[Rfam]
RNA: TPP riboswitch aptamer (THI element)
RNA sequence: CAAAUACAUCUGGGGAGCCGGGGAUGACCUGGCUGAGAGGGUGCCACAGGGUGCCGACCCAAGAACCUGAUCUGGGUAAUGCCAGCGGAGGGAGAGUGAUUUAAGAUGGCC
Numbered sequence: 001c002a003a004a005u006a007c008a009u010c011u012g013g014g015g016a017g018c019c020g021g022g023g024a025u026g027a028c029c030u031g032g033c034u035g036a037g038a039g040g041g042u043g044c045c046a047c048a049g050g051g052u053g054c055c056g057a058c059c060c061a062a063g064a065a066c067c068u069g070a071u072c073u074g075g076g077u078a079a080u081g082c083c084a085g086c087g088g089a090g091g092g093a094g095a096g097u098g099a100u101u102u103a104a105g106a107u108g109g110c111c
Base pairs, nucleotide, nucleotide: 007098008097009096011061012060013059014058017033018032019031020030021029040055041054042053043052044051066091067090068089072085073084074083075082